[Rfam]
RNA sequence: GGAUAUCUUUUUUUGCUAUCCUCGACUAAUAACGCAAUGACACGUAGGAUAACUUUUCUAUGUGUCAUUGUGUUAUUGGUCGGAAAUAGCAAAACAGUGUUAUCC
Number, nucleotide and partner (000 for none) at each position: 001g105002g104003a103004u102005a000006u000007c000008u000009u000010u000011u094012u093013u092014u091015g090016c089017u088018a087019u086020c000021c000022u083023c082024g081025a080026c079027u078028a077029a076030u075031a074032a073033c072034g071035c070036a069037a068038u067039g066040a065041c064042a063043c062044g061045u060046a059047g058048g057049a056050u000051a000052a000053c000054u000055u000056u049057u048058c047059u046060a045061u044062g043063u042064g041065u040066c039067a038068u037069u036070g035071u034072g033073u032074u031075a030076u029077u028078g027079g026080u025081c024082g023083g022084a000085a000086a019087u018088a017089g016090c015091a014092a013093a012094a011095c000096a000097g000098u000099g000100u000101u000102a004103u003104c002105c001
RNA: MIR6274 microRNA precursor family